[Rfam]
RNA: Archaeal large subunit ribosomal RNA, nucleotides 2116 to 2696
Organism: Candidatus Nanohalobium constans
RNA sequence: CUCCCAGUGGGAAGCGAAGACCCUGUGAACCUUUACUGCAGUCUGACGUUGCGGUGGGGUUCCAUGUGUGAAGUGUAGGUAGAAGACAUUACAGAGGUGCAUACGCUAGUAUGUCGCCCAGUCGACCAUGGGACACUACCCACGUGGAACCCUGCUGCUUACUUCUACGGAAGGACAGCGUUAGCUGGGCAGUUUAGCUGGGGCGGCAUCCCUCUGAUAACGAAUCAGAGGGGUUCAAAAGUAUGCUCAAGUCGGUCAGAAAUCGACUGUAGAGGACAAAGCCAAAUGCAUGCUUGACUGGAUUCCUGUUAGUAGGGGAUCUAGGCGCGAAAGCGUGACUUAGCGAACGCCUUUAGCCAAUAAGUGAGGCUUAGGCCUGACAAAAAAGGUACUCCAGGGAUAACUGGAUUGUCUGUGGCGCGAGCUCAUAUCGACCCGCAGGCUUGUUACUUCGAUGUCGGCUCUCCGUAUCCUGGCUGUGCAACAGCAGCCAAGGGUGAGGGUGUUCACCUAUUAAAACGGAUCGUGAGCUGGGUUUAGAUCGGCGUGAGCCAGAUCUGUUGCUAUCUGCUGGGAGUGUU
Numbered sequence: 001c002u003c004c005c006a007g008u009g010g011g012a013a014g015c016g017a018a019g020a021c022c023c024u025g026u027g028a029a030c031c032u033u034u035a036c037u038g039c040a041g042u043c044u045g046a047c048g049u050u051g052c053g054g055u056g057g058g059g060u061u062c063c064a065u066g067u068g069u070g071a072a073g074u075g076u077a078g079g080u081a082g083a084a085g086a087c088a089u090u091a092c093a094g095a096g097g098u099g100c101a102u103a104c105g106c107u108a109g110u111a112u113g114u115c116g117c118c119c120a121g122u123c124g125a126c127c128a129u130g131g132g133a134c135a136c137u138a139c140c141c142a143c144g145u146g147g148a149a150c151c152c153u154g155c156u157g158c159u160u161a162c163u164u165c166u167a168c169g170g171a172a173g174g175a176c177a178g179c180g181u182u183a184g185c186u187g188g189g190c191a192g193u194u195u196a197g198c199u200g201g202g203g204c205g206g207c208a209u210c211c212c213u214c215u216g217a218u219a220a221c222g223a224a225u226c227a228g229a230g231g232g233g234u235u236c237a238a239a240a241g242u243a244u245g246c247u248c249a250a251g252u253c254g255g256u257c258a259g260a261a262a263u264c265g266a267c268u269g270u271a272g273a274g275g276a277c278a279a280a281g282c283c284a285a286a287u288g289c290a291u292g293c294u295u296g297a298c299u300g301g302a303u304u305c306c307u308g309u310u311a312g313u314a315g316g317g318g319a320u321c322u323a324g325g326c327g328c329g330a331a332a333g334c335g336u337g338a339c340u341u342a343g344c345g346a347a348c349g350c351c352u353u354u355a356g357c358c359a360a361u362a363a364g365u366g367a368g369g370c371u372u373a374g375g376c377c378u379g380a381c382a383a384a385a386a387a388g389g390u391a392c393u394c395c396a397g398g399g400a401u402a403a404c405u406g407g408a409u410u411g412u413c414u415g416u417g418g419c420g421c422g423a424g425c426u427c428a429u430a431u432c433g434a435c436c437c438g439c440a441g442g443c444u445u446g447u448u449a450c451u452u453c454g455a456u457g458u459c460g461g462c463u464c465u466c467c468g469u470a471u472c473c474u475g476g477c478u479g480u481g482c483a484a485c486a487g488c489a490g491c492c493a494a495g496g497g498u499g500a501g502g503g504u505g506u507u508c509a510c511c512u513a514u515u516a517a518a519a520c521g522g523a524u525c526g527u528g529a530g531c532u533g534g535g536u537u538u539a540g541a542u543c544g545g546c547g548u549g550a551g552c553c554a555g556a557u558c559u560g561u562u563g564c565u566a567u568c569u570g571c572u573g574g575g576a577g578u579g580u581u
Stems, first nucleotide, its partner, number of pairs: 001577008010569003014564002022398004027394002029390005035193004043184006051158018078140005085123003100113005162173004196209001197207003210232006235338002241293006247273002250268006274283002298324009326335001328333001349376004355371004407448003411445001412442007422432002459534001460532004464526001465523005472497002476491005500512003540558004544553003